[Rfam]
RNA: Fluoride riboswitch aptamer (crcB RNA motif)
RNA sequence: CACGGUAGCGGCGAUGGAGUCCGCCCUUUAACUGCCGGGGACGCCGGCUGAUGACUCCUGUGGAGAA
Numbered sequence: 001c002a003c004g005g006u007a008g009c010g011g012c013g014a015u016g017g018a019g020u021c022c023g024c025c026c027u028u029u030a031a032c033u034g035c036c037g038g039g040g041a042c043g044c045c046g047g048c049u050g051a052u053g054a055c056u057c058c059u060g061u062g063g064a065g066a067a
Stems, first nucleotide, its partner, number of pairs: 010025004016058006034048004